This 181-nucleotide RNA sequence from Exiguobacterium chiriqhucha belongs to the Rfam family "Lysine riboswitch aptamer".

[Rfam]
RNA sequence: CUGACAGAUAGAGGUUGCGAAUGACAUGAGUACGCUUGAUCGACACGGACGCAUUCCGGAUCGAGCCGAAAGGGGAAUUUCGCCGAAGUCGACGUUCGCAUGCGUACGAACGAAGGCUGGGGUAGUCGUGAAUAACGCCUACACUGCCAUGGAUGAAAUGCCAUGGAGCGCUAUCUACGGA
Dot-bracket structure: .....((((((.....((((((..(........(((((((...................))))))).......)..).)))))...((((..((((((........))))))..))))((.((((.(((.....))).)))).)).((((((........))))))....)))))).....
Description: Rfam links the family to the GO term lysine biosynthetic process. The base pairs follow the family's consensus structure, which is taken from published work. The match comes from Rfam's covariance-model search (99 bits).